[Rfam]
RNA sequence: GGGGGGAGGCUGGAUCCUGGGCUGUGUCCCCAGCGCCCAGUGCUCUCGGGCCUGCACUGUUGGACUCGUGCUCCCGUCCGCAGCCGCCU
Numbered sequence: 001g002g003g004g005g006g007a008g009g010c011u012g013g014a015u016c017c018u019g020g021g022c023u024g025u026g027u028c029c030c031c032a033g034c035g036c037c038c039a040g041u042g043c044u045c046u047c048g049g050g051c052c053u054g055c056a057c058u059g060u061u062g063g064a065c066u067c068g069u070g071c072u073c074c075c076g077u078c079c080g081c082a083g084c085c086g087c088c089u
Stems, first nucleotide, its partner, number of pairs: 001089003005085002009081002012079002017076001019074003023070004027064002030062001031059003035055002040052001042051003
This 89-nucleotide RNA sequence from Nyctereutes procyonoides belongs to the Rfam family "mir-8799 microRNA precursor family". A search with the family's covariance model found it, with a score of 73 bits. The source organism's lineage runs through Eukaryota, Metazoa, Gnathostomata, Euteleostomi and Nyctereutes. The family's consensus secondary structure was predicted with RNAalifold. Its family is annotated with RISC complex and miRNA-mediated post-transcriptional gene silencing in the Gene Ontology.